[Rfam]
RNA sequence: ACUGGCAGAUGAUGAAAUAAUAAUAUCAGUUUUAUGCUUAACACUCUGAUUAAACUGUGGUGACUACAAACUCUGCUUAUUAUCUGAUGCCAGA
Numbered sequence: 001a002c003u004g005g006c007a008g009a010u011g012a013u014g015a016a017a018u019a020a021u022a023a024u025a026u027c028a029g030u031u032u033u034a035u036g037c038u039u040a041a042c043a044c045u046c047u048g049a050u051u052a053a054a055c056u057g058u059g060g061u062g063a064c065u066a067c068a069a070a071c072u073c074u075g076c077u078u079a080u081u082a083u084c085u086g087a088u089g090c091c092a093g094a
Base pairs, nucleotide, nucleotide: 003092004091005090006089007088
The family of this 94-nucleotide sequence from Helianthus annuus is "Small nucleolar RNA R16". On this family, see Galardi et al., Mol Cell Biol 2002: "Purified box C/D snoRNPs are able to reproduce site-specific 2'-O-methylation of target RNA in vitro". It is annotated as a C/D-box small nucleolar RNA. Rfam links the family to the GO terms nucleolus and RNA processing.